Notes
A member of the RNA family "tRNA" from Desulfitobacterium hafniense, 84 nucleotides long. It scores 56 bits against the family's covariance model. Lineage of the source: Bacteria > Bacillati > Eubacteriales > Desulfitobacteriaceae > Desulfitobacterium hafniense. The family's consensus secondary structure is taken from published work.

RNA sequence: GCGAGUGUGGCGGAACAGGCAGACGCGACGGUCUCAAAAACCGUUAUCUUUACGGAUGUGUCGGUUCGACUCCGACCACUCGCA
Numbered sequence: 001g002c003g004a005g006u007g008u009g010g011c012g013g014a015a016c017a018g019g020c021a022g023a024c025g026c027g028a029c030g031g032u033c034u035c036a037a038a039a040a041c042c043g044u045u046a047u048c049u050u051u052a053c054g055g056a057u058g059u060g061u062c063g064g065u066u067c068g069a070c071u072c073c074g075a076c077c078a079c080u081c082g083c084a
Base pairs, nucleotide, nucleotide: 001083002082003081004080005079006078007077010026011025012024028044029043030042031041032040060076061075062074063073064072